[Rfam]
RNA sequence: GUGAGAACCAUGUGAAUCAAGUAGCAUAGUGAUUCACAGGGUUCUCACAA
Numbered sequence: 001g002u003g004a005g006a007a008c009c010a011u012g013u014g015a016a017u018c019a020a021g022u023a024g025c026a027u028a029g030u031g032a033u034u035c036a037c038a039g040g041g042u043u044c045u046c047a048c049a050a
Stems, first nucleotide, its partner, number of pairs: 001048009011038009
The family of this 50-nucleotide RNA sequence from Triosteum pinnatifidum is "Plastid-ccsA-ndhD-1 3UTR RNA". Plastid-ccsA-ndhD-1 is a non-coding RNA (ncRNA) recognised in plastids. It was found in the three prime untranslated region (3UTR) of ccsA and ndhD genes, its 3UTR location suggests a role in transcript maturation. Rfam classes the family as a cis-regulatory element. A reference for the family is Zandueta-Criado and Bock (2004), "Surprising features of plastid ndhD transcripts: addition of non-encoded nucleotides and polysome association of mRNAs with an unedited start codon", Nucleic Acids Res. The source organism's lineage runs through Eukaryota, Embryophyta, Euphyllophyta, Spermatophyta and Triosteum. The sequence is in the family's curated seed alignment.